Record summary: Rfam assigns this 108-nucleotide sequence from Shimwellia blattae to the family "ArcZ RNA". From the family's description: This RNA was discovered in E. coli during a large scale screen. SraH expression is highly abundant in stationary phase, but low levels could be detected in exponentially growing cells as well. ArcZ RNA function as an activator of the alternative sigma factor RpoS as a response of stress. ArcZ afects and is also affected by the ArcA-ArcB regulon (aerobic/anaerobic-sensing ArcA-ArcB two-component). Gene Ontology terms of the family: regulation of translation and protein binding. For this family Rfam cites "Integrating anaerobic/aerobic sensing and the general stress response through the ArcZ small RNA" (Mandin and Gottesman, EMBO J, 2010). Lineage of the source: Bacteria > Pseudomonadati > Pseudomonadota > Enterobacterales > Shimwellia blattae. It scores 68 bits against the family's covariance model. The family's consensus secondary structure was predicted with PFOLD. It is annotated as a small RNA.

[Rfam]
RNA sequence: GAGCGUUUCGCUUUCACAGGCGUCGCUGUGCCUGAACAAUAAUCAACACAGCAGCGGCGUUACCUUUUCCCUGGUGUUGGCGCAGUCUUCGCGCACCCCGGUUUACCG
Numbered sequence: 001g002a003g004c005g006u007u008u009c010g011c012u013u014u015c016a017c018a019g020g021c022g023u024c025g026c027u028g029u030g031c032c033u034g035a036a037c038a039a040u041a042a043u044c045a046a047c048a049c050a051g052c053a054g055c056g057g058c059g060u061u062a063c064c065u066u067u068u069c070c071c072u073g074g075u076g077u078u079g080g081c082g083c084a085g086u087c088u089u090c091g092c093g094c095a096c097c098c099c100g101g102u103u104u105a106c107c108g
Base pairs, nucleotide, nucleotide: 020060021059022058023057024056025055026054027053073097074096075095080094081093082092083091
Dot-bracket structure: ...................((((((((.........................))))))))............(((....((((.......)))))))...........